[Rfam]
RNA: TPP riboswitch aptamer (THI element)
RNA sequence: GAGAGCCGCUAGGGGAGCCGUUGCAACGGCUGAGAACCGGGGUGAACCCCGGGACCCUGUCACCUGAUCCGGGUAAUGCCGGCGUAGGGAAGCGAGCCUCGCGGACA
Numbered sequence: 001g002a003g004a005g006c007c008g009c010u011a012g013g014g015g016a017g018c019c020g021u022u023g024c025a026a027c028g029g030c031u032g033a034g035a036a037c038c039g040g041g042g043u044g045a046a047c048c049c050c051g052g053g054a055c056c057c058u059g060u061c062a063c064c065u066g067a068u069c070c071g072g073g074u075a076a077u078g079c080c081g082g083c084g085u086a087g088g089g090a091a092g093c094g095a096g097c098c099u100c101g102c103g104g105a106c107a
Stems, first nucleotide, its partner, number of pairs: 007094004011058004017030005037052005063088004069082004